[Rfam]
RNA sequence: UUUCGAUGUGAGUGCCGUCGGCCGGUAGCUGACCGUUACACUCCAGGAAUCAAGUCUUUCCGGAUGCCUCCGGACCCCCGGAGGCGUUCAGUCAGCAGCCGCUGCAACCCCAGGGAG
Numbered sequence: 001u002u003u004c005g006a007u008g009u010g011a012g013u014g015c016c017g018u019c020g021g022c023c024g025g026u027a028g029c030u031g032a033c034c035g036u037u038a039c040a041c042u043c044c045a046g047g048a049a050u051c052a053a054g055u056c057u058u059u060c061c062g063g064a065u066g067c068c069u070c071c072g073g074a075c076c077c078c079c080g081g082a083g084g085c086g087u088u089c090a091g092u093c094a095g096c097a098g099c100c101g102c103u104g105c106a107a108c109c110c111c112a113g114g115g116a117g
Stems, first nucleotide, its partner, number of pairs: 054077001057074001060073005093104004
RNA: Streptomyces-metK RNA